[Rfam]
RNA sequence: GAUCCCGGAGGUUACCGCCCGACAGCGCUGAGCGCCCUCGGGCGUGUUUGGC
Numbered sequence: 001g002a003u004c005c006c007g008g009a010g011g012u013u014a015c016c017g018c019c020c021g022a023c024a025g026c027g028c029u030g031a032g033c034g035c036c037c038u039c040g041g042g043c044g045u046g047u048u049u050g051g052c
Base pairs, nucleotide, nucleotide: 016044017043018042019041020040021039022038025035026034027033028032
The family of this 52-nucleotide sequence from bacterium YEK0313 is "ffh sRNA". The match comes from Rfam's covariance-model search (50 bits). Rfam classes the family as a small RNA.